The family of this 61-nucleotide RNA is "RAGATH-18 RNA". Rfam's curators put it in the seed alignment. By type it is a small RNA. Rfam describes the family as follows. Actinobacteria, Firmicutes, Fusobacteria, Thermotogae (1 example).
RNA sequence: CCCUCGGAGUACCAUACCAACGAAAGUAGCUGCGGCAAAAUCGGGUACGUUGAAAAGGGAA
Dot-bracket structure: ((((....(((((.......(((.....((....))....)))))))).......))))..